[Rfam]
Shown here is a 300-nucleotide RNA from Salvia splendens, a member of the family "Plant signal recognition particle RNA". The literature on the family includes a 2002 paper in Curr Opin Struct Biol by Wild et al., "Towards the structure of the mammalian signal recognition particle". Pairs were carried over by alignment from the consensus structure, which is taken from published work. NCBI's taxonomy places the organism under Eukaryota, Euphyllophyta, Pentapetalae, Nepetoideae, core Calosphace.

RNA sequence: GUCGGGCCUUGUAACGUUGGCUUGUAACCCAAGUGGGGGCAUUAAAUUGGUUGGAUAUUGGCCCGAACCAUCUGGCUAGGCUUUGUGGUGCUUAUUCUGGCCUGCCCGUUCCAAGCUAGGAGUUGGGCCACGGGGCUUGUGCGAAGGCAUGGGCUUCUUGGCCCGUAGAGUGGAGGGCACCGCGUUAGGCUGGUUUCACAUAGCAACGACUACUUCCCACUCUUGGCAGUGGAAGGAUAACAGUCUGGUGCGUCGUUUGCUCGUUAAAGUCAGACGUGUUGGCUCAAUUAAACAACCAAU
Numbered sequence: 001g002u003c004g005g006g007c008c009u010u011g012u013a014a015c016g017u018u019g020g021c022u023u024g025u026a027a028c029c030c031a032a033g034u035g036g037g038g039g040c041a042u043u044a045a046a047u048u049g050g051u052u053g054g055a056u057a058u059u060g061g062c063c064c065g066a067a068c069c070a071u072c073u074g075g076c077u078a079g080g081c082u083u084u085g086u087g088g089u090g091c092u093u094a095u096u097c098u099g100g101c102c103u104g105c106c107c108g109u110u111c112c113a114a115g116c117u118a119g120g121a122g123u124u125g126g127g128c129c130a131c132g133g134g135g136c137u138u139g140u141g142c143g144a145a146g147g148c149a150u151g152g153g154c155u156u157c158u159u160g161g162c163c164c165g166u167a168g169a170g171u172g173g174a175g176g177g178c179a180c181c182g183c184g185u186u187a188g189g190c191u192g193g194u195u196u197c198a199c200a201u202a203g204c205a206a207c208g209a210c211u212a213c214u215u216c217c218c219a220c221u222c223u224u225g226g227c228a229g230u231g232g233a234a235g236g237a238u239a240a241c242a243g244u245c246u247g248g249u250g251c252g253u254c255g256u257u258u259g260c261u262c263g264u265u266a267a268a269g270u271c272a273g274a275c276g277u278g279u280u281g282g283c284u285c286a287a288u289u290a291a292a293c294a295a296c297c298a299a300u
Stems, first nucleotide, its partner, number of pairs: 001040003004023005028037003046300008056290002058287003061283003065279001069276001071274007079262002082259001085256006092250001097248004102243003106236002109234005115227009125164006132157011172217005183208003191200002